[Rfam]
A member of the RNA family "Manganese Mn2+ riboswitch aptamer (yybP-ykoY)" from Stakelama sediminis, 172 nucleotides long. A reference for the family is Barrick et al. (2004), "New RNA motifs suggest an expanded scope for riboswitches in bacterial genetic control", Proc Natl Acad Sci U S A. Gene Ontology term of the family: manganese ion binding. It scores 57 bits against the family's covariance model.
Nucleotides: 172
Base pairs, nucleotide, nucleotide: 025033026032027031035076036075037074038073039072040071041070042069043068044067052066053065054064055063056062082172083171
Number, partner (000 for none) and nucleotide at each position: 001000a002000c003000a004000u005000c006000g007000c008000u009000c010000c011000u012000g013000g014000g015000g016000a017000g018000u019000a020000g021000c022000c023000a024000c025033c026032c027031g028000c029000u030000a031027c032026g033025g034000g035076g036075c037074c038073u039072u040071c041070g042069u043068c044067a045000a046000c047000a048000u049000a050000c051000u052066c053065g054064g055063u056062u057000c058000g059000c060000a061000g062056a063055a064054c065053c066052g067044u068043g069042g070041c071040g072039a073038a074037g075036g076035c077000a078000g079000c080000a081000c082172g083171a084000c085000a086000g087000a088000c089000c090000g091000u092000g093000c094000c095000c096000g097000g098000c099000a100000a101000g102000a103000c104000c105000a106000g107000c108000g109000a110000c111000g112000c113000g114000c115000u116000u117000c118000a119000c120000c121000c122000u123000u124000u125000c126000c127000u128000g129000u130000c131000g132000g133000c134000c135000g136000g137000g138000g139000g140000u141000g142000a143000u144000g145000u146000g147000u148000g149000u150000c151000g152000u153000g154000g155000g156000u157000u158000a159000u160000a161000g162000g163000a164000c165000c166000g167000g168000c169000c170000a171083u172082c